[Rfam]
RNA sequence: UUGGCCUGUGGCUCCACUCACUUCCUUCAGCCCCAGGAAGCCUUGGUCUGGGGCAGGAGGGAGGGCCAGGCAGGGCUGGGGGCCUG
Numbered sequence: 001u002u003g004g005c006c007u008g009u010g011g012c013u014c015c016a017c018u019c020a021c022u023u024c025c026u027u028c029a030g031c032c033c034c035a036g037g038a039a040g041c042c043u044u045g046g047u048c049u050g051g052g053g054c055a056g057g058a059g060g061g062a063g064g065g066c067c068a069g070g071c072a073g074g075g076c077u078g079g080g081g082g083c084c085u086g
Stems, first nucleotide, its partner, number of pairs: 003084005009078005017069002021064008030054008
The family of this 86-nucleotide RNA from Pongo pygmaeus is "mir-647 microRNA precursor family".
The base pairs follow the family's consensus structure, which was predicted with RNAalifold.
Gene Ontology terms of the family: miRNA-mediated post-transcriptional gene silencing and RISC complex.